[Rfam]
RNA sequence: UCUUAAAUACAUCCUAUGUUAAGGUUCAAC
Numbered sequence: 001u002c003u004u005a006a007a008u009a010c011a012u013c014c015u016a017u018g019u020u021a022a023g024g025u026u027c028a029a030c
Base pairs, nucleotide, nucleotide: 009019010018011017012016
CRISPR RNA direct repeat element: a 30-nucleotide sequence from Clostridium botulinum. The source organism's lineage runs through Bacteria, Bacillota, Clostridia, Eubacteriales and Clostridium botulinum. Rfam's curators put it in the seed alignment.